[Rfam]
RNA sequence: UACGGAUAAGGGCAAACUCUGAGUAAUCAGAGGACGCAAAGGAAAGGGUCUUGGGAAGAGUGAAAAGAAGUAUAGGAAAAGACAGCCUUGCUGCCGAG
Numbered sequence: 001u002a003c004g005g006a007u008a009a010g011g012g013c014a015a016a017c018u019c020u021g022a023g024u025a026a027u028c029a030g031a032g033g034a035c036g037c038a039a040a041g042g043a044a045a046g047g048g049u050c051u052u053g054g055g056a057a058g059a060g061u062g063a064a065a066a067g068a069a070g071u072a073u074a075g076g077a078a079a080a081g082a083c084a085g086c087c088u089u090g091c092u093g094c095c096g097a098g
Stems, first nucleotide, its partner, number of pairs: 012037002017032006040092002043089001045088003048083005
Rfam assigns this 98-nucleotide RNA sequence from Candidatus Jettenia caeni to the family "c-di-GMP-I riboswitch aptamer". On this family, see Sudarsan et al., Science 2008: "Riboswitches in Eubacteria Sense the Second Messenger Cyclic Di-GMP". The source organism's lineage runs through Bacteria, Planctomycetota, Candidatus Brocadiia, Candidatus Brocadiaceae and Candidatus Jettenia.